[Rfam]
RNA: Eukaryotic small subunit ribosomal RNA, nucleotides 1143 to 1634
Organism: Ophiostoma piceae
RNA sequence: UAAUAAAAAGGCAUUAUUAAGGGUAAAGCCUACGGCUUAAUUUAACUUAAUACGGGGAAACUUAUUAGGUUUAAACACGAUAAGGAUUAAUAAAUUAAAAGCUUUUUUUUAAUUUCGUAAGUAGUAGUGUAUAGCCGUUUUUAAUUAGUAAAGUGAUUUAUUUACUUAAUCGCGAUAAUAAACGAAACUUUAACCUAUUAAAUAACCCGCGCUACUUUAAUAGCGUACUAGCUUUUUAAAAGGAUUAUCGGUUUAAACCGAUAAAAGUUUAAGGUAAUAAUAAGUUUAUAAUACCUUUAAAUGUUUUAAGCCGUACGCGCGUUAUACUAAUAAAGUUAACGAGUUCUUUUUUAAUCGAAAAGCUUGGGUAAUUUUAUAAAACUUUAUCGUAUUAAAGAUAAAGUAUUAUAAUUAUUACUUUUUAACGAAGAAUCCUUAAUAAACGUAAAUUAUUAAUUUACGUUAAUUACGUCCCUACUUUUUAUAUAUACC
Numbered sequence: 001u002a003a004u005a006a007a008a009a010g011g012c013a014u015u016a017u018u019a020a021g022g023g024u025a026a027a028g029c030c031u032a033c034g035g036c037u038u039a040a041u042u043u044a045a046c047u048u049a050a051u052a053c054g055g056g057g058a059a060a061c062u063u064a065u066u067a068g069g070u071u072u073a074a075a076c077a078c079g080a081u082a083a084g085g086a087u088u089a090a091u092a093a094a095u096u097a098a099a100a101g102c103u104u105u106u107u108u109u110u111a112a113u114u115u116c117g118u119a120a121g122u123a124g125u126a127g128u129g130u131a132u133a134g135c136c137g138u139u140u141u142u143a144a145u146u147a148g149u150a151a152a153g154u155g156a157u158u159u160a161u162u163u164a165c166u167u168a169a170u171c172g173c174g175a176u177a178a179u180a181a182a183c184g185a186a187a188c189u190u191u192a193a194c195c196u197a198u199u200a201a202a203u204a205a206c207c208c209g210c211g212c213u214a215c216u217u218u219a220a221u222a223g224c225g226u227a228c229u230a231g232c233u234u235u236u237u238a239a240a241a242g243g244a245u246u247a248u249c250g251g252u253u254u255a256a257a258c259c260g261a262u263a264a265a266a267g268u269u270u271a272a273g274g275u276a277a278u279a280a281u282a283a284g285u286u287u288a289u290a291a292u293a294c295c296u297u298u299a300a301a302u303g304u305u306u307u308a309a310g311c312c313g314u315a316c317g318c319g320c321g322u323u324a325u326a327c328u329a330a331u332a333a334a335g336u337u338a339a340c341g342a343g344u345u346c347u348u349u350u351u352u353a354a355u356c357g358a359a360a361a362g363c364u365u366g367g368g369u370a371a372u373u374u375u376a377u378a379a380a381a382c383u384u385u386a387u388c389g390u391a392u393u394a395a396a397g398a399u400a401a402a403g404u405a406u407u408a409u410a411a412u413u414a415u416u417a418c419u420u421u422u423u424a425a426c427g428a429a430g431a432a433u434c435c436u437u438a439a440u441a442a443a444c445g446u447a448a449a450u451u452a453u454u455a456a457u458u459u460a461c462g463u464u465a466a467u468u469a470c471g472u473c474c475c476u477a478c479u480u481u482u483u484a485u486a487u488a489u490a491c492c
Stems, first nucleotide, its partner, number of pairs: 001488002003485003007482005013476001016472002020436005025325001027323003031319001033317002035314002041056003065309005071303001077118004089108002092105003123297002127294003132291001133289001134285002137281003145182002148179002150159003162175002165172001189273004194242001196240001198239004204233001206231001245264008330387006341375003349368002353364001355362001400421006442464008